Description: The family of this 258-nucleotide RNA sequence from Rhizopus azygosporus is "Group I catalytic intron". Lineage of the source: Eukaryota > Opisthokonta > Mucoromycotina > Rhizopodaceae > Rhizopus.
RNA sequence: UUUACACAAUUUACAUAAAGAAGUUGCUUUUUGAGGUGACUCAAAUUGAAAAAAAGGGUGAAUUGCAAGAAACUCUUAAUCAUUUAAUAUAACCCCUAGAUUAAGACAAUUUGCAGCUAAGUCUAGAUUAGUAUUAAUAUAAAUCUAGAAAAGUUCAACGACUAGUUGGUGAGUAAUACUAACAAUAAUCCAACCUAGAGCGCCCUUUCACUAUAAAUGUAGUGAAUGACAUAGUCUAAUCUUACUAGAAAUGGUAAG
Numbered sequence: 001u002u003u004a005c006a007c008a009a010u011u012u013a014c015a016u017a018a019a020g021a022a023g024u025u026g027c028u029u030u031u032u033g034a035g036g037u038g039a040c041u042c043a044a045a046u047u048g049a050a051a052a053a054a055a056g057g058g059u060g061a062a063u064u065g066c067a068a069g070a071a072a073c074u075c076u077u078a079a080u081c082a083u084u085u086a087a088u089a090u091a092a093c094c095c096c097u098a099g100a101u102u103a104a105g106a107c108a109a110u111u112u113g114c115a116g117c118u119a120a121g122u123c124u125a126g127a128u129u130a131g132u133a134u135u136a137a138u139a140u141a142a143a144u145c146u147a148g149a150a151a152a153g154u155u156c157a158a159c160g161a162c163u164a165g166u167u168g169g170u171g172a173g174u175a176a177u178a179c180u181a182a183c184a185a186u187a188a189u190c191c192a193a194c195c196u197a198g199a200g201c202g203c204c205c206u207u208u209c210a211c212u213a214u215a216a217a218u219g220u221a222g223u224g225a226a227u228g229a230c231a232u233a234g235u236c237u238a239a240u241c242u243u244a245c246u247a248g249a250a251a252u253g254g255u256a257a258g
Stems, first nucleotide, its partner, number of pairs: 007026006032043003053208005059202002064115006074106008116154002122148001129142001131140003158237001160236005210223004243256005
Notes:
Its family is annotated with Group I intron splicing in the Gene Ontology. The match comes from Rfam's covariance-model search (84 bits). Group I catalytic introns are large self-splicing ribozymes. They catalyse their own excision from mRNA, tRNA and rRNA precursors in a wide range of organisms.